[Rfam]
Nucleotides: 056
Stems, first nucleotide, its partner, number of pairs: 006052004011047002018044009
Number, partner (000 for none) and nucleotide at each position: 001000g002000g003000u004000a005000u006052u007051a008050u009049u010000a011047u012046u013000a014000a015000a016000a017000c018044c019043a020042c021041g022040a023039u024038a025037a026036g027000c028000c029000c030000c031000g032000g033000a034000a035000u036026c037025u038024u039023a040022u041021u042020g043019u044018g045000u046012a047011a048000g049009a050008a051007u052006a053000u054000a055000u056000g
Rfam assigns this 56-nucleotide RNA from Cytobacillus kochii to the family "Ribosomal protein L13 leader". The family's RNA type in Rfam is cis-regulatory leader. Rfam describes the family as follows. This family is a putative r-protein leader autoregulatory structure found in B. subtilis and other low-GC Gram-positive bacteria. It is located in the 5' untranslated regions of mRNAs encoding the L13-S9 (rplM-rpsI) ribosomal protein operon. The source organism's lineage runs through Bacteria, Bacilli, Caryophanales, Bacillaceae and Cytobacillus. Gene Ontology term of the family: regulation of gene expression. A search with the family's covariance model found it, with a score of 47 bits.